A member of the RNA family "Small nucleolar RNA snoR8a" from Acer yangbiense, 83 nucleotides long.
For this family Rfam cites "Multiple snoRNA gene clusters from Arabidopsis" (Brown et al., RNA, 2001).
The family's consensus secondary structure was predicted with WAR.
The organism belongs to Acer, within Eukaryota.
Rfam 15.1 lists 956 matches to the family in 245 species.
It is annotated as a C/D-box small nucleolar RNA.
[Rfam]
RNA sequence: UCGGUUGCGAUGAUUAUAAAAAAUUCCUCGUACUGAUUGCUAUUGCAAUGAAGACUCAUUUACACCCAUAGAAUAUGAGCACC
Dot-bracket structure: ..((.((........................................................................))))